Small nucleolar RNA SNORA17: a 135-nucleotide RNA sequence from Sparus aurata.
[Rfam]
RNA sequence: AUUGCCCCUUGAGGCGUUGCAGUCCGACUCUGUGUCGAGCCUGUGUCAUAAGGUGGCAGAGAUUAAAAGGUCUGCACUGUCAUCUGAAUUCAGAACCUCCAACAGUGGGGUUUCUGAAAAAUGAAGUCUACCAAU
Numbered sequence: 001a002u003u004g005c006c007c008c009u010u011g012a013g014g015c016g017u018u019g020c021a022g023u024c025c026g027a028c029u030c031u032g033u034g035u036c037g038a039g040c041c042u043g044u045g046u047c048a049u050a051a052g053g054u055g056g057c058a059g060a061g062a063u064u065a066a067a068a069g070g071u072c073u074g075c076a077c078u079g080u081c082a083u084c085u086g087a088a089u090u091c092a093g094a095a096c097c098u099c100c101a102a103c104a105g106u107g108g109g110g111u112u113u114c115u116g117a118a119a120a121a122u123g124a125a126g127u128c129u130a131c132c133a134a135u
Stems, first nucleotide, its partner, number of pairs: 002059005007053005013047003019044004024039001025037004069129002072126002075123001080120001083117002086114001087112005
Notes:
On this family, see Ofengand and Bakin, J Mol Biol 1997: "Mapping to nucleotide resolution of pseudouridine residues in large subunit ribosomal RNAs from representative eukaryotes, prokaryotes, archaebacteria, mitochondria and chloroplasts". Rfam classes the family as an H/ACA-box small nucleolar RNA.